Description:
The record is a 76-nucleotide sequence, which matches "Small nucleolar RNA SNORD24" in Rfam. A reference for the family is Qu et al. (1995), "U24, a novel intron-encoded small nucleolar RNA with two 12 nt long, phylogenetically conserved complementarities to 28S rRNA", Nucleic Acids Res. Pairs were carried over by alignment from the consensus structure, which was predicted with PFOLD.
RNA sequence: UGCAGAUGAAUGUAAAAGCCUAUUUGCUAUCUGAGAGAUGUGGAUGACAUUUUAAACCACCAAGAUCGCUGAUGCA
Numbered sequence: 001u002g003c004a005g006a007u008g009a010a011u012g013u014a015a016a017a018g019c020c021u022a023u024u025u026g027c028u029a030u031c032u033g034a035g036a037g038a039u040g041u042g043g044a045u046g047a048c049a050u051u052u053u054a055a056a057c058c059a060c061c062a063a064g065a066u067c068g069c070u071g072a073u074g075c076a
Base pairs, nucleotide, nucleotide: 001076002075003074004073